A member of the RNA family "Small nucleolar RNA snoR31/Z110/Z27" from Arabis nemorensis, 91 nucleotides long. For this family Rfam cites "Identification of 66 box C/D snoRNAs in Arabidopsis thaliana: extensive gene duplications generated multiple isoforms predicting new ribosomal RNA 2'-O-methylation sites" (Barneche et al., J Mol Biol, 2001). About the family: This family contains several related snoRNAs including R31, Z27 and Z110. Taxonomically the source falls in Arabis (Eukaryota, Streptophyta, Spermatophyta, Gunneridae). Its family is annotated with RNA processing and nucleolus in the Gene Ontology.
RNA sequence: UGGAGAAAUAUGAUGAUAAUCAGAAAUAAUCUUAGGACACCUUCUGACACAGUUACUGUGUAUGAGAAAAAAUUGUUAUUCUGAUUCUCCA
Numbered sequence: 001u002g003g004a005g006a007a008a009u010a011u012g013a014u015g016a017u018a019a020u021c022a023g024a025a026a027u028a029a030u031c032u033u034a035g036g037a038c039a040c041c042u043u044c045u046g047a048c049a050c051a052g053u054u055a056c057u058g059u060g061u062a063u064g065a066g067a068a069a070a071a072a073u074u075g076u077u078a079u080u081c082u083g084a085u086u087c088u089c090c091a
Base pairs, nucleotide, nucleotide: 001091002090003089004088005087006086007085045051046050